[Rfam]
Nucleotides: 201
Base pairs, nucleotide, nucleotide: 038051041048080161081160082159083158084157085156086155089152090151091150092149093148094147095146096145097144098143099142102139103138104137105136106135108133109132110131119127120126178197179196180195181194182193183192184191185190
Number, partner (000 for none) and nucleotide at each position: 001000g002000u003000c004000a005000c006000g007000g008000g009000a010000a011000c012000g013000u014000u015000a016000g017000g018000c019000c020000a021000a022000u023000c024000u025000u026000a027000u028000u029000g030000c031000c032000g033000c034000c035000a036000a037000a038051u039000u040000u041048u042000a043000g044000c045000c046000c047000a048041g049000c050000c051038g052000a053000u054000g055000c056000c057000c058000u059000u060000g061000u062000g063000g064000c065000c066000u067000g068000c069000g070000a071000u072000a073000c074000c075000a076000a077000g078000a079000u080161a081160c082159u083158g084157c085156g086155u087000c088000g089152g090151g091150u092149c093148c094147g095146g096145u097144u098143c099142u100000u101000c102139c103138g104137g105136u106135c107000u108133c109132g110131g111000a112000u113000u114000c115000c116000u117000c118000a119127g120126c121000c122000c123000c124000c125000a126120g127119c128000c129000c130000c131110c132109c133108g134000c135106g136105g137104u138103c139102g140000u141000u142099g143098g144097g145096a146095u147094c148093g149092g150091a151090c152089c153000c154000u155086g156085c157084g158083c159082a160081g161080u162000g163000a164000u165000a166000a167000g168000a169000c170000g171000a172000c173000c174000u175000u176000g177000a178197g179196g180195g181194c182193c183192a184191a185190u186000g187000a188000a189000a190185a191184u192183u193182g194181g195180u196179c197178c198000u199000u200000u201000u

This 201-nucleotide RNA sequence from a Bradyrhizobiaceae bacterium belongs to the Rfam family "Bradyrhizobiaceae sRNA BjrC174".
It scores 139 bits against the family's covariance model.
The family's RNA type in Rfam is small RNA.
Lineage of the source: Bacteria > Pseudomonadati > Pseudomonadota > Hyphomicrobiales > Nitrobacteraceae.
A reference for the family is Madhugiri et al. (2012), "Small RNAs of the Bradyrhizobium/Rhodopseudomonas lineage and their analysis", RNA Biol.